[Rfam]
RNA sequence: GAGAACAGUGAUGAGCUCUUUUACAGACCUGUAAUGAUUGUGCGGAUAUGAUCGCAUUUUCAAAGAACAUCUAAGGGGCUGAGUUCUC
Numbered sequence: 001g002a003g004a005a006c007a008g009u010g011a012u013g014a015g016c017u018c019u020u021u022u023a024c025a026g027a028c029c030u031g032u033a034a035u036g037a038u039u040g041u042g043c044g045g046a047u048a049u050g051a052u053c054g055c056a057u058u059u060u061c062a063a064a065g066a067a068c069a070u071c072u073a074a075g076g077g078g079c080u081g082a083g084u085u086c087u088c
Base pairs, nucleotide, nucleotide: 002087003086004085005084006083